[Rfam]
RNA sequence: UUGAUCGGGUGCUCAGUAGCUAGUGUAGGAUCUGUUUUGUCAUUUCUACAGCUACAUCUGGUUACUGGGUCUCUGAUCACAUCC
Numbered sequence: 001u002u003g004a005u006c007g008g009g010u011g012c013u014c015a016g017u018a019g020c021u022a023g024u025g026u027a028g029g030a031u032c033u034g035u036u037u038u039g040u041c042a043u044u045u046c047u048a049c050a051g052c053u054a055c056a057u058c059u060g061g062u063u064a065c066u067g068g069g070u071c072u073c074u075g076a077u078c079a080c081a082u083c084c
Base pairs, nucleotide, nucleotide: 013068014067015066016065017064018063020061021060022059023057024056025055026054027053028052032051033050034049035048
The family of this 84-nucleotide sequence from Callorhinchus milii is "mir-221 microRNA precursor family". For this family Rfam cites "MicroRNA profile of Marek's disease virus-transformed T-cell line MSB-1: predominance of virus-encoded microRNAs" (Yao et al., J Virol, 2008).